[Rfam]
RNA sequence: GGUUAAUAAUUAACUGUACCGAAGACAGUAGGUGACGCAAGUCUUAAUUUCCUACCGAGGACAAUUGUUGAGUUAUAUACAAUUCGGUCCCUCUAUGUCUACGGUGGCAUGGAGUUUUGUUGUUUUACAC
Numbered sequence: 001g002g003u004u005a006a007u008a009a010u011u012a013a014c015u016g017u018a019c020c021g022a023a024g025a026c027a028g029u030a031g032g033u034g035a036c037g038c039a040a041g042u043c044u045u046a047a048u049u050u051c052c053u054a055c056c057g058a059g060g061a062c063a064a065u066u067g068u069u070g071a072g073u074u075a076u077a078u079a080c081a082a083u084u085c086g087g088u089c090c091c092u093c094u095a096u097g098u099c100u101a102c103g104g105u106g107g108c109a110u111g112g113a114g115u116u117u118u119g120u121u122g123u124u125u126u127a128c129a130c
Stems, first nucleotide, its partner, number of pairs: 028055005034043003091114009
A member of the RNA family "Ribosomal protein L10 leader" from Enterococcus faecalis, 130 nucleotides long. By type it is a cis-regulatory leader. The literature on the family includes a 1994 paper in Prog Nucleic Acid Res Mol Biol by Zengel and Lindahl, "Diverse mechanisms for regulating ribosomal protein synthesis in Escherichia coli". It is one of the family's seed sequences.